The family of this 268-nucleotide sequence from Pseudomonas sp. 8AS is "rne-II RNA". Lineage of the source: Bacteria > Pseudomonadota > Gammaproteobacteria > Pseudomonadaceae > Pseudomonas.
RNA sequence: AUACGUGUAGGGUGGAGAUGCACAACCGUCGGACUGCGUAGCAACAGGCUUUACAAGACGCGUCAUUAUCGUCCGCAGCGACUGGUUGAUUCCUCCCCUGACUGAGUGCUUCUGUCACCACAGCAAGCAGGAGCGUCGUCGCAACCCAACCGCCACAGGCCAACGGUUGCUAGACACUGGAAUGAUUUACGCCCAUUCCUGACGCGCCCUGACACCGACCGUGAGAGUCGUGUGUGCCAACCGCCGUUUCCGGCAGCCCCGGAAACCA
Numbered sequence: 001a002u003a004c005g006u007g008u009a010g011g012g013u014g015g016a017g018a019u020g021c022a023c024a025a026c027c028g029u030c031g032g033a034c035u036g037c038g039u040a041g042c043a044a045c046a047g048g049c050u051u052u053a054c055a056a057g058a059c060g061c062g063u064c065a066u067u068a069u070c071g072u073c074c075g076c077a078g079c080g081a082c083u084g085g086u087u088g089a090u091u092c093c094u095c096c097c098c099u100g101a102c103u104g105a106g107u108g109c110u111u112c113u114g115u116c117a118c119c120a121c122a123g124c125a126a127g128c129a130g131g132a133g134c135g136u137c138g139u140c141g142c143a144a145c146c147c148a149a150c151c152g153c154c155a156c157a158g159g160c161c162a163a164c165g166g167u168u169g170c171u172a173g174a175c176a177c178u179g180g181a182a183u184g185a186u187u188u189a190c191g192c193c194c195a196u197u198c199c200u201g202a203c204g205c206g207c208c209c210u211g212a213c214a215c216c217g218a219c220c221g222u223g224a225g226a227g228u229c230g231u232g233u234g235u236g237c238c239a240a241c242c243g244c245c246g247u248u249u250c251c252g253g254c255a256g257c258c259c260c261g262g263a264a265a266c267c268a
Base pairs, nucleotide, nucleotide: 014096015095016094017093023088024087025086026085027084028083032079036076037075038074040050041049042048057073058072059071060070097131098130099129100128134204135203136202137201138175139174140173141170142169143168144167152160153159179199180198181197182196183195184194212235213234214233215232216230217229218228219227246266247265248264249263250262251261252260